[Rfam]
RNA sequence: UUAUGGGGACAUUUUUGGGACAUUUCACUCAGCCUCACUUUCAGGAGUUCUGUGUGGUCUGUGAAUGACUCCCCGUACCUGUUG
Numbered sequence: 001u002u003a004u005g006g007g008g009a010c011a012u013u014u015u016u017g018g019g020a021c022a023u024u025u026c027a028c029u030c031a032g033c034c035u036c037a038c039u040u041u042c043a044g045g046a047g048u049u050c051u052g053u054g055u056g057g058u059c060u061g062u063g064a065a066u067g068a069c070u071c072c073c074c075g076u077a078c079c080u081g082u083u084g
Base pairs, nucleotide, nucleotide: 004081006079008078011076012075017074018073019072028063029061032058033057034056036054037053038052
Shown here is an 84-nucleotide RNA from Microtus ochrogaster, a member of the family "NoRC associated RNA, pRNA".
Pairs were carried over by alignment from the consensus structure, which is taken from published work.
On this family, see Mayer et al., EMBO Rep 2008: "The structure of NoRC-associated RNA is crucial for targeting the chromatin remodelling complex NoRC to the nucleolus".